RNA sequence: AUAGGUUUUCUUCAUCUUCUUCAUAAAUUUUUCUGGGAUUCUUAUUGUUGAAGGUUGAUGGAGAUGAUAUGAAGAUGAAAAAGAGGAGAAG
Numbered sequence: 001a002u003a004g005g006u007u008u009u010c011u012u013c014a015u016c017u018u019c020u021u022c023a024u025a026a027a028u029u030u031u032u033c034u035g036g037g038a039u040u041c042u043u044a045u046u047g048u049u050g051a052a053g054g055u056u057g058a059u060g061g062a063g064a065u066g067a068u069a070u071g072a073a074g075a076u077g078a079a080a081a082a083g084a085g086g087a088g089a090a091g
Stems, first nucleotide, its partner, number of pairs: 006084004011079009037056004042051002
This 91-nucleotide RNA from Medicago truncatula belongs to the Rfam family "MIR5298 microRNA precursor family". The organism belongs to Medicago, within Eukaryota. The base pairs follow the family's consensus structure, which was predicted with RNAalifold.